[Rfam]
RNA sequence: CACUCCUGUUUCUGCCUCGUGUCCUUAGAAACGCUUCCACAGGACACGGGUUCUAAUUAUGGAGAAGAUCAAGCUUUGAAAUGGCCUAUUCACACAUUUUGAUACAACCGUGAACAGUGUUCCGUUUCGGAGAUCGUGUGGGUUUCUAUCGUUACGUACUCAUUGUGUUUUCAAAAAUCUCUGAGUUGUUUAGAUGCCACUAUAUUU
Numbered sequence: 001c002a003c004u005c006c007u008g009u010u011u012c013u014g015c016c017u018c019g020u021g022u023c024c025u026u027a028g029a030a031a032c033g034c035u036u037c038c039a040c041a042g043g044a045c046a047c048g049g050g051u052u053c054u055a056a057u058u059a060u061g062g063a064g065a066a067g068a069u070c071a072a073g074c075u076u077u078g079a080a081a082u083g084g085c086c087u088a089u090u091c092a093c094a095c096a097u098u099u100u101g102a103u104a105c106a107a108c109c110g111u112g113a114a115c116a117g118u119g120u121u122c123c124g125u126u127u128c129g130g131a132g133a134u135c136g137u138g139u140g141g142g143u144u145u146c147u148a149u150c151g152u153u154a155c156g157u158a159c160u161c162a163u164u165g166u167g168u169u170u171u172c173a174a175a176a177a178u179c180u181c182u183g184a185g186u187u188g189u190u191u192a193g194a195u196g197c198c199a200c201u202a203u204a205u206u207u
Stems, first nucleotide, its partner, number of pairs: 003064004016050010074132010084120002086117002089114005138200004145194004158186005165179001167178004
RNA: Small nucleolar RNA snR43